Selenocysteine transfer RNA: a 91-nucleotide RNA sequence from Desulfurobacterium indicum. Gene Ontology term of the family: triplet codon-amino acid adaptor activity.

[Rfam]
RNA sequence: GGAGGCAGAUGGAGGCUGGUGUCUCCCCCGGACUUCAAAUCCGGUGGUCUCGCGUAGAGCGGGACGGUAGGUUCGAUUCCUAUCUGCCUCC
Number, nucleotide and partner (000 for none) at each position: 001g091002g090003a089004g088005g087006c086007a085008g084009a083010u000011g026012g025013a024014g023015g022016c021017u000018g000019g000020u000021g016022u015023c014024u013025c012026c011027c000028c044029c043030g042031g041032a040033c000034u000035u000036c000037a000038a000039a000040u032041c031042c030043g029044g028045u000046g000047g065048u064049c063050u062051c061052g000053c000054g000055u000056a000057g000058a000059g000060c000061g051062g050063g049064a048065c047066g000067g000068u082069a081070g080071g079072u000073u000074c000075g000076a000077u000078u000079c071080c070081u069082a068083u009084c008085u007086g006087c005088c004089u003090c002091c001